Shown here is a 77-nucleotide RNA from Tinamus guttatus, a member of the family "bZIP non canonical Hac1/Xbp1 intron". Pairs were carried over by alignment from the consensus structure, which was predicted with RNAfold. bZIP intron RNA is a non-canonical intron that was first reported in HAC1 gene in yeast and XBP1 gene in Metazoa. The family has 112 seed sequences and 1,325 matches in Rfam 15.1. A reference for the family is Iracane et al. (2018), "Identification of an Exceptionally Long Intron in the HAC1 Gene of Candida parapsilosis", mSphere.
[Rfam]
RNA sequence: UGGUGACCGGGUCCGCUGAGUCCGCAGCACUCAGACUACGUGUUCCUCUGCAGCAGGUACAGGCCCAGCAGUCACCA
Dot-bracket structure: (((((((.(((((..((((((.......))))))........(.(((.......))).)..)))))....)))))))